[Rfam]
RNA sequence: GCAUGGAUAAAUUCUGCACCAGCUUUCCUCAGUAGCUGAUGCAGCCAGACACCGUGCCAGAGCAAAUUCCUGUUUUUCCACUGUGCCUGGUGUCCCGUUUUUUGGGAAUGGGCAUGCCCUUGGAAGGGGAAUACACAA
Numbered sequence: 001g002c003a004u005g006g007a008u009a010a011a012u013u014c015u016g017c018a019c020c021a022g023c024u025u026u027c028c029u030c031a032g033u034a035g036c037u038g039a040u041g042c043a044g045c046c047a048g049a050c051a052c053c054g055u056g057c058c059a060g061a062g063c064a065a066a067u068u069c070c071u072g073u074u075u076u077u078c079c080a081c082u083g084u085g086c087c088u089g090g091u092g093u094c095c096c097g098u099u100u101u102u103u104g105g106g107a108a109u110g111g112g113c114a115u116g117c118c119c120u121u122g123g124a125a126g127g128g129g130a131a132u133a134c135a136c137a138a
Base pairs, nucleotide, nucleotide: 001057002056003055004054005053006052014044015043016042017041018040071130073127074126075125076124077123078122089118090117091116092115093114095112096111
RNA: Small nucleolar RNA SNORA15
Organism: Pteruthius melanotis